RNA sequence: ACCUGCCUCGGGCUUGUUUUACCUUGCCUGUGGCUCGCAGCGAUGACACACAGGCAGCUGAAGCAAGCCUGAGGCGGAG
Numbered sequence: 001a002c003c004u005g006c007c008u009c010g011g012g013c014u015u016g017u018u019u020u021a022c023c024u025u026g027c028c029u030g031u032g033g034c035u036c037g038c039a040g041c042g043a044u045g046a047c048a049c050a051c052a053g054g055c056a057g058c059u060g061a062a063g064c065a066a067g068c069c070u071g072a073g074g075c076g077g078a079g
Stems, first nucleotide, its partner, number of pairs: 003077002006074003010070011024057007032049001
RNA: mir-1788 microRNA precursor family